[Rfam]
RNA: tRNA
RNA sequence: GGAGAAGUGGCAGAUAGAAAUGCAUGCGGCUUGAAACCGUUGGAUAGAGGUUCAAUUCCUCUCUUCUCUU
Numbered sequence: 001g002g003a004g005a006a007g008u009g010g011c012a013g014a015u016a017g018a019a020a021u022g023c024a025u026g027c028g029g030c031u032u033g034a035a036a037c038c039g040u041u042g043g044a045u046a047g048a049g050g051u052u053c054a055a056u057u058c059c060u061c062u063c064u065u066c067u068c069u070u
Base pairs, nucleotide, nucleotide: 001069002068003067004066005065006064007063010023011022012021026040027039028038029037046062047061048060049059050058